[Rfam]
RNA: TPP riboswitch aptamer (THI element)
Organism: Ensifer sp. M14
RNA sequence: CCCGCUCUAACGGGGUGCCUUCCGACCGCAUGCGGCCGAAGGCUGAGAGGCGUUUAACGCCAACCCGCGGAACCUGAUCCGGCUCAUACCGGCGGAGGGAUUAGACGCGAUCGGAUC
Numbered sequence: 001c002c003c004g005c006u007c008u009a010a011c012g013g014g015g016u017g018c019c020u021u022c023c024g025a026c027c028g029c030a031u032g033c034g035g036c037c038g039a040a041g042g043c044u045g046a047g048a049g050g051c052g053u054u055u056a057a058c059g060c061c062a063a064c065c066c067g068c069g070g071a072a073c074c075u076g077a078u079c080c081g082g083c084u085c086a087u088a089c090c091g092g093c094g095g096a097g098g099g100a101u102u103a104g105a106c107g108c109g110a111u112c113g114g115a116u117c
Stems, first nucleotide, its partner, number of pairs: 006105005011067004017043005050060004073098003079092004